[Rfam]
RNA: Purine riboswitch aptamer
RNA sequence: UAUAAAAAUCACAAUUAAACUCAUAUAUACUUGGGAUUGGCCAAGAGUUUCUACGAACUACCGUAAAUAGUUCUCUAUGAGGGAUAAAUAUAAUCGC
Numbered sequence: 001u002a003u004a005a006a007a008a009u010c011a012c013a014a015u016u017a018a019a020c021u022c023a024u025a026u027a028u029a030c031u032u033g034g035g036a037u038u039g040g041c042c043a044a045g046a047g048u049u050u051c052u053a054c055g056a057a058c059u060a061c062c063g064u065a066a067a068u069a070g071u072u073c074u075c076u077a078u079g080a081g082g083g084a085u086a087a088a089u090a091u092a093a094u095c096g097c
Base pairs, nucleotide, nucleotide: 020081021080022079023078024077025076030045031044032043033042034041055073056072057071058070059069060068